[Rfam]
RNA sequence: CAAUAUCAUUAGCCUAAGUUUUACUAAAAACACGGGGAAACCAGUAACAUUGGGGUGAAUCGUAUUUACGUAGGUUAUGCCUUUACCGAACCCGUCAGCUAACCCCGUCGGUAAUAAGGAGAGGAUUA
Numbered sequence: 001c002a003a004u005a006u007c008a009u010u011a012g013c014c015u016a017a018g019u020u021u022u023a024c025u026a027a028a029a030a031c032a033c034g035g036g037g038a039a040a041c042c043a044g045u046a047a048c049a050u051u052g053g054g055g056u057g058a059a060u061c062g063u064a065u066u067u068a069c070g071u072a073g074g075u076u077a078u079g080c081c082u083u084u085a086c087c088g089a090a091c092c093c094g095u096c097a098g099c100u101a102a103c104c105c106c107g108u109c110g111g112u113a114a115u116a117a118g119g120a121g122a123g124g125a126u127u128a
Base pairs, nucleotide, nucleotide: 012112013111014110018031019030020029021028022027032108033107034106035105036104037103042052043051053093054092055091061070062069063068073087074086075085
Dot-bracket structure: ...........(((...(((((....)))))((((((....((.......))(((.....(((....)))..(((.........)))...))).........)))))).)))................

Shown here is a 128-nucleotide RNA from Clostridium ljungdahlii, a member of the family "c-di-AMP riboswitch aptamer (ydaO/yuaA leader)". A search with the family's covariance model found it, with a score of 90 bits. Gene Ontology terms of the family: cyclic-di-AMP binding and regulation of gene expression. Lineage of the source: Bacteria > Clostridia > Eubacteriales > Clostridiaceae > Clostridium.